Overview: The record is a 133-nucleotide RNA from Electrophorus electricus, which matches "Small nucleolar RNA SNORD10" in Rfam. The family's RNA type in Rfam is C/D-box small nucleolar RNA. A reference for the family is Huttenhofer et al. (2001), "RNomics: an experimental approach that identifies 201 candidates for novel, small, non-messenger RNAs in mouse", EMBO J. NCBI's taxonomy places the organism under Eukaryota, Opisthokonta, Vertebrata, Teleostomi, Electrophorus.

[Rfam]
RNA sequence: GCUGUAAUGAUGAUCCCCAUGCGUGUCAGCUGACUUCGGUAGCCCUCUGCAUUUCCCCGGUGUUCUGUUGAGCGCUGGCUCCGGGUUGCAGGCCUCUGGAGGCAUGAUCAGACCUCACUGACCUGAACACAGC
Numbered sequence: 001g002c003u004g005u006a007a008u009g010a011u012g013a014u015c016c017c018c019a020u021g022c023g024u025g026u027c028a029g030c031u032g033a034c035u036u037c038g039g040u041a042g043c044c045c046u047c048u049g050c051a052u053u054u055c056c057c058c059g060g061u062g063u064u065c066u067g068u069u070g071a072g073c074g075c076u077g078g079c080u081c082c083g084g085g086u087u088g089c090a091g092g093c094c095u096c097u098g099g100a101g102g103c104a105u106g107a108u109c110a111g112a113c114c115u116c117a118c119u120g121a122c123c124u125g126a127a128c129a130c131a132g133c
Stems, first nucleotide, its partner, number of pairs: 001133004047091005053085003